[Rfam]
RNA sequence: CAAACGGUUCUUUUAGGAACCACCACAUAUGACAAGAGUCAUGUCC
Numbered sequence: 001c002a003a004a005c006g007g008u009u010c011u012u013u014u015a016g017g018a019a020c021c022a023c024c025a026c027a028u029a030u031g032a033c034a035a036g037a038g039u040c041a042u043g044u045c046c
Base pairs, nucleotide, nucleotide: 006021007020008019009018010017011016
Shown here is a 46-nucleotide RNA from Nematostella vectensis, a member of the family "Histone 3' UTR stem-loop". Pairs were carried over by alignment from the consensus structure, which is taken from published work. The family's RNA type in Rfam is cis-regulatory element. It is one of the family's seed sequences. On this family, see Tan et al., Science 2013: "Structure of histone mRNA stem-loop, human stem-loop binding protein, and 3'hExo ternary complex". NCBI's taxonomy places the organism under Eukaryota, Opisthokonta, Eumetazoa, Hexacorallia, Nematostella.